The record is a 113-nucleotide RNA from Aeromicrobium camelliae, which matches "SAM (S-adenosyl methionine) riboswitch aptamer" in Rfam. The organism belongs to Aeromicrobium, within Bacteria. The family's consensus secondary structure is taken from published work. Rfam links the family to the GO terms regulation of gene expression and S-adenosylmethionine metabolic process. A search with the family's covariance model found it, with a score of 51 bits.
RNA sequence: GGUCAAGAGAGCCAUCCACGCCUCCGGACAGUGAUGGCCGGCAACCGGGUCGCCCGACACGGUGCCCUCCGGAGAAGACCCGGCGGCAUCGGUCGAUGCCGUCACACCGGGCA
Numbered sequence: 001g002g003u004c005a006a007g008a009g010a011g012c013c014a015u016c017c018a019c020g021c022c023u024c025c026g027g028a029c030a031g032u033g034a035u036g037g038c039c040g041g042c043a044a045c046c047g048g049g050u051c052g053c054c055c056g057a058c059a060c061g062g063u064g065c066c067c068u069c070c071g072g073a074g075a076a077g078a079c080c081c082g083g084c085g086g087c088a089u090c091g092g093u094c095g096a097u098g099c100c101g102u103c104a105c106a107c108c109g110g111g112c113a
Stems, first nucleotide, its partner, number of pairs: 001080004009039001011038006021031001040066003045062003049058002083102008